[Rfam]
The record is a 75-nucleotide RNA from Peterkaempfera bronchialis, which matches "ASpks TB sRNA" in Rfam. On this family, see Arnvig and Young, Mol Microbiol 2009: "Identification of small RNAs in Mycobacterium tuberculosis".
RNA sequence: CUUCAGCGAGCCGAGCCAGAGCGGCCGGUCCUCGUCCCGCCCCCGGCCGUAGGUGGCCAGCAGCGCCUGCGCCUC
Numbered sequence: 001c002u003u004c005a006g007c008g009a010g011c012c013g014a015g016c017c018a019g020a021g022c023g024g025c026c027g028g029u030c031c032u033c034g035u036c037c038c039g040c041c042c043c044c045g046g047c048c049g050u051a052g053g054u055g056g057c058c059a060g061c062a063g064c065g066c067c068u069g070c071g072c073c074u075c
Base pairs, nucleotide, nucleotide: 015025016024017023031071033069038065039064043060045058047056048055049054
Dot-bracket structure: ..............(((.....))).....(.(....((...(.(.(((....))).).)...))...).)....
A search with the family's covariance model found it, with a score of 83 bits.